[Rfam]
Shown here is a 44-nucleotide RNA from Martelella sp. AD-3, a member of the family "Guanidine-II riboswitch aptamer (mini-ykkC)". The family's consensus secondary structure is taken from published work. The family has 72 seed sequences and 1,589 matches in Rfam 15.1.
RNA sequence: CGCGGGACGACCUGCGUCUUCUGUCACAAUCCGGGACGGCCCGG
Numbered sequence: 001c002g003c004g005g006g007a008c009g010a011c012c013u014g015c016g017u018c019u020u021c022u023g024u025c026a027c028a029a030u031c032c033g034g035g036a037c038g039g040c041c042c043g044g
Base pairs, nucleotide, nucleotide: 001016002015003014004013005012006011031044032043033042034041035040